[Rfam]
RNA sequence: CUUACUCAAAUUUGUAUGGAGAUGGAAUAGCGCCACUAGCGGCAAACGUAGGCAAACGUUCCAACUCCAUACAAAUUUGAGUUA
Numbered sequence: 001c002u003u004a005c006u007c008a009a010a011u012u013u014g015u016a017u018g019g020a021g022a023u024g025g026a027a028u029a030g031c032g033c034c035a036c037u038a039g040c041g042g043c044a045a046a047c048g049u050a051g052g053c054a055a056a057c058g059u060u061c062c063a064a065c066u067c068c069a070u071a072c073a074a075a076u077u078u079g080a081g082u083u084a
Stems, first nucleotide, its partner, number of pairs: 008078009018068001020066002023063006034052001039047001
Rfam assigns this 84-nucleotide RNA sequence from Bombyx mori to the family "mir-2807 microRNA precursor family". NCBI's taxonomy places the organism under Eukaryota, Metazoa, Obtectomera, Bombycidae, Bombyx.